[Rfam]
RNA sequence: GUCUGUCCAGUGCCCCUUUUGUAUUGUACUACUGGUGACCCUUCAAUGAAGCAGUGCAAUGUUAAAAGGGCAUUGGCCAGGGA
Dot-bracket structure: .((.(.((((.((((.(((..(((((((((......................)))))))))..))).)))).)))).)..)).
Numbered sequence: 001g002u003c004u005g006u007c008c009a010g011u012g013c014c015c016c017u018u019u020u021g022u023a024u025u026g027u028a029c030u031a032c033u034g035g036u037g038a039c040c041c042u043u044c045a046a047u048g049a050a051g052c053a054g055u056g057c058a059a060u061g062u063u064a065a066a067a068g069g070g071c072a073u074u075g076g077c078c079a080g081g082g083a
Stems, first nucleotide, its partner, number of pairs: 002082002005078001007076004012071004017066003022061009
mir-130 microRNA precursor family: an 83-nucleotide RNA from Salmo trutta.
For this family Rfam cites "Embryonic stem cell-specific MicroRNAs" (Houbaviy et al., Dev Cell, 2003).
A search with the family's covariance model found it, with a score of 55 bits.
Its family is annotated with miRNA-mediated post-transcriptional gene silencing and RISC complex in the Gene Ontology.
The source organism's lineage runs through Eukaryota, Eumetazoa, Teleostomi, Euteleostomi and Salmo.
The base pairs follow the family's consensus structure, which was predicted with PFOLD.